Rfam assigns this 78-nucleotide RNA from Anas platyrhynchos to the family "Small nucleolar RNA SNORD69".
Rfam 15.1 lists 524 matches to the family in 496 species.
The source organism's lineage runs through Eukaryota, Bilateria, Sarcopterygii, Theropoda and Anas platyrhynchos.
It scores 51 bits against the family's covariance model.
The family's RNA type in Rfam is C/D-box small nucleolar RNA.
RNA sequence: GACACAAAGCAUAUGAUGAGAAAACACUGAAACUGACUCUGUAUGAAGUGCAUUCAGUCCAACGCUGAGCUUUGUGGC
Numbered sequence: 001g002a003c004a005c006a007a008a009g010c011a012u013a014u015g016a017u018g019a020g021a022a023a024a025c026a027c028u029g030a031a032a033c034u035g036a037c038u039c040u041g042u043a044u045g046a047a048g049u050g051c052a053u054u055c056a057g058u059c060c061a062a063c064g065c066u067g068a069g070c071u072u073u074g075u076g077g078c
Stems, first nucleotide, its partner, number of pairs: 001078001003076008